[Rfam]
RNA sequence: CUUACAGAUUUCUUUGGCAUUCUGUCCACCUCCUUCUAUGUAUACAAGUUUAUGUAUAUGCAUGGUGUGUGAAAGAGGGAGGUGGUCAUACUGUCAACGGACAUCUGUUAG
Numbered sequence: 001c002u003u004a005c006a007g008a009u010u011u012c013u014u015u016g017g018c019a020u021u022c023u024g025u026c027c028a029c030c031u032c033c034u035u036c037u038a039u040g041u042a043u044a045c046a047a048g049u050u051u052a053u054g055u056a057u058a059u060g061c062a063u064g065g066u067g068u069g070u071g072a073a074a075g076a077g078g079g080a081g082g083u084g085g086u087c088a089u090a091c092u093g094u095c096a097a098c099g100g101a102c103a104u105c106u107g108u109u110a111g
Stems, first nucleotide, its partner, number of pairs: 011101001014097006023088002026085011
MIR394 microRNA precursor family: a 111-nucleotide RNA sequence from Brassica cretica. Gene Ontology terms of the family: miRNA-mediated post-transcriptional gene silencing and RISC complex.